[Rfam]
The record is a 125-nucleotide RNA from Turnix velox, which matches "Small nucleolar RNA SNORA65" in Rfam. On this family, see Huttenhofer et al., EMBO J 2001: "RNomics: an experimental approach that identifies 201 candidates for novel, small, non-messenger RNAs in mouse". The family is grouped with related families in Rfam's "SNORA65 clan". Rfam describes the family as follows. U65 belongs to the H/ACA class of snoRNAs which are thought to guide the sites of modification of uridines to pseudouridines. Pairs were carried over by alignment from the consensus structure, which was predicted with RNAalifold. A search with the family's covariance model found it, with a score of 75 bits. It is annotated as an H/ACA-box small nucleolar RNA. Lineage of the source: Eukaryota > Sauropsida > Archosauria > Saurischia > Turnix.
RNA sequence: CCUGCCACCGUGCCUGUCACACAGUGACUGGUGCAGUCCAGAGGUGAGCUGACAGAAAAGUGCCCACUUAGGAAACAAAGUUGCCCUUCUUGUGGGUGGCCUUGUGCCAAAGUCUGCAAACAAAU
Dot-bracket structure: ....((.(.(.......(...(...)....).......).).))................(((..((((.((...(((.((..(((.......)))..)).)))..)).))))..))).......